[Rfam]
RNA sequence: GGGUGCUCGAAGACCGUACCAGAAGUGUUUUUGACAUGGACACACGGUUUUCGCCGUUCCCAAAUCAUGUAAAUGCACUAUCUGGUACGACACUUCGGCGCCC
Numbered sequence: 001g002g003g004u005g006c007u008c009g010a011a012g013a014c015c016g017u018a019c020c021a022g023a024a025g026u027g028u029u030u031u032u033g034a035c036a037u038g039g040a041c042a043c044a045c046g047g048u049u050u051u052c053g054c055c056g057u058u059c060c061c062a063a064a065u066c067a068u069g070u071a072a073a074u075g076c077a078c079u080a081u082c083u084g085g086u087a088c089g090a091c092a093c094u095u096c097g098g099c100g101c102c103c
Stems, first nucleotide, its partner, number of pairs: 008097004015089009025078001027076002030073003042070003

Shown here is a 103-nucleotide RNA sequence from Acyrthosiphon pisum, a member of the family "mir-277 microRNA precursor family". The literature on the family includes a 2010 paper in BMC Genomics by Liu et al., "MicroRNAs of Bombyx mori identified by Solexa sequencing". The base pairs follow the family's consensus structure, which was predicted with RNAalifold.